[Rfam]
RNA sequence: UCUGGUAAUGAUGACACACUUGCCCUCACUGAGAAUGUUAUUCUAUAAUGAGAACACAACACCAAUGUACUCGGUUAACCUGAACCAGA
Numbered sequence: 001u002c003u004g005g006u007a008a009u010g011a012u013g014a015c016a017c018a019c020u021u022g023c024c025c026u027c028a029c030u031g032a033g034a035a036u037g038u039u040a041u042u043c044u045a046u047a048a049u050g051a052g053a054a055c056a057c058a059a060c061a062c063c064a065a066u067g068u069a070c071u072c073g074g075u076u077a078a079c080c081u082g083a084a085c086c087a088g089a
Stems, first nucleotide, its partner, number of pairs: 001089006
Annotation:
Small nucleolar RNA SNORD103/SNORD85: an 89-nucleotide sequence from Xenopus laevis. By type it is a C/D-box small nucleolar RNA. Pairs were carried over by alignment from the consensus structure. The source organism's lineage runs through Eukaryota, Craniata, Sarcopterygii, Xenopus and Xenopus. For this family Rfam cites "RNomics: an experimental approach that identifies 201 candidates for novel, small, non-messenger RNAs in mouse" (Huttenhofer et al., EMBO J, 2001).